[Rfam]
RNA sequence: AAUAAUUUCGUUUUUAAUUGUCAUAUAUAUUCUUGAUAUGGAAGAAUGUUUCUACACUAAACCUUAAAUUUAGUUCUAUGAUAGAAUUUUUUGUUGGC
Number, nucleotide and partner (000 for none) at each position: 001a000002a000003u000004a000005a000006u000007u000008u000009c000010g000011u000012u000013u000014u000015u000016a000017a000018u084019u083020g082021u081022c080023a079024u078025a077026u000027a000028u000029a047030u046031u045032c044033u043034u042035g000036a000037u000038a000039u000040g000041g000042a034043a033044g032045a031046a030047u029048g000049u000050u000051u000052c000053u000054a000055c000056a074057c073058u072059a071060a070061a069062c000063c000064u000065u000066a000067a000068a000069u061070u060071u059072a058073g057074u056075u000076c000077u025078a024079u023080g022081a021082u020083a019084g018085a000086a000087u000088u000089u000090u000091u000092u000093g000094u000095u000096g000097g000098c000
The record is a 98-nucleotide sequence from Firmicutes bacterium CAG:449, which matches "Purine riboswitch aptamer" in Rfam. The base pairs follow the family's consensus structure, which is taken from published work.